[Rfam]
The family of this 85-nucleotide RNA sequence from Caulobacter sp. Root655 is "Makes More Granules Regulator RNA (mmgR)". By type it is a small RNA. The match comes from Rfam's covariance-model search (47 bits).
RNA sequence: GGUCUCAGCCCUUCUGGGCGUUUCCUCCUAUGCGACUUUGGCCGUCUUCUGCUCUCCUGCGAAGGCGGCCUUUCUUUUGGGCGUU
Numbered sequence: 001g002g003u004c005u006c007a008g009c010c011c012u013u014c015u016g017g018g019c020g021u022u023u024c025c026u027c028c029u030a031u032g033c034g035a036c037u038u039u040g041g042c043c044g045u046c047u048u049c050u051g052c053u054c055u056c057c058u059g060c061g062a063a064g065g066c067g068g069c070c071u072u073u074c075u076u077u078u079g080g081g082c083g084u085u
Stems, first nucleotide, its partner, number of pairs: 008019004040070009